RNA: Rhizobiales sRNA Atu_At1
RNA sequence: UCGCGUGUCGUGUCAACCGGACGCGACAGGGAUGACGAACGCAGGGAUUUUUCCGGUUUCUCCUUGCGGCCAACGAAAUGGCAGUCGAGCGUCUUACCUGUCCGGACC
Numbered sequence: 001u002c003g004c005g006u007g008u009c010g011u012g013u014c015a016a017c018c019g020g021a022c023g024c025g026a027c028a029g030g031g032a033u034g035a036c037g038a039a040c041g042c043a044g045g046g047a048u049u050u051u052u053c054c055g056g057u058u059u060c061u062c063c064u065u066g067c068g069g070c071c072a073a074c075g076a077a078a079u080g081g082c083a084g085u086c087g088a089g090c091g092u093c094u095u096a097c098c099u100g101u102c103c104g105g106a107c108c
Stems, first nucleotide, its partner, number of pairs: 007107003011023004025102006034093004040068007069082003
Dot-bracket structure: ......(((.((((.....)))).((((((...((((..(((((((...............)))))))(((........))).......))))...))))))..))).